[Rfam]
RNA sequence: UUACACAGAAAUGUUAACUGUCAUGUGUUACAUUCUAAUUGGAUGAUGAAAAUGUAUUAUUGUUGUCAACGUCCAAUCAAAACAUAGCAUGUGACUGUCAAUGUUC
Numbered sequence: 001u002u003a004c005a006c007a008g009a010a011a012u013g014u015u016a017a018c019u020g021u022c023a024u025g026u027g028u029u030a031c032a033u034u035c036u037a038a039u040u041g042g043a044u045g046a047u048g049a050a051a052a053u054g055u056a057u058u059a060u061u062g063u064u065g066u067c068a069a070c071g072u073c074c075a076a077u078c079a080a081a082a083c084a085u086a087g088c089a090u091g092u093g094a095c096u097g098u099c100a101a102u103g104u105u106c
Base pairs, nucleotide, nucleotide: 020095021094022093023092025090026089029086030085033082034081036079038077039076040075